[Rfam]
RNA sequence: GGUCGAUGAUGUGAUGGCAUGUAUUACCUGAAUUUAUGGCUGAUGUGUACUAACACUAGCUCUAGAAUUACACUGAGACCUU
Number, nucleotide and partner (000 for none) at each position: 001g080002g079003u078004c077005g000006a000007u000008g000009a000010u000011g000012u000013g000014a000015u000016g000017g000018c000019a000020u000021g000022u000023a000024u000025u000026a000027c000028c000029u000030g000031a000032a000033u000034u000035u000036a000037u000038g000039g000040c000041u000042g000043a000044u000045g000046u000047g000048u000049a000050c000051u000052a000053a000054c000055a000056c000057u000058a000059g000060c000061u000062c000063u000064a000065g000066a000067a000068u000069u000070a000071c000072a000073c000074u000075g000076a000077g004078a003079c002080c001081u000082u000
Shown here is an 82-nucleotide RNA from Rhinolophus ferrumequinum, a member of the family "Small nucleolar RNA SNORD45". Pairs were carried over by alignment from the consensus structure, which was predicted with PFOLD. For this family Rfam cites "Purified box C/D snoRNPs are able to reproduce site-specific 2'-O-methylation of target RNA in vitro" (Galardi et al., Mol Cell Biol, 2002). Its family is annotated with RNA processing and nucleolus in the Gene Ontology. By type it is a C/D-box small nucleolar RNA. It scores 83 bits against the family's covariance model.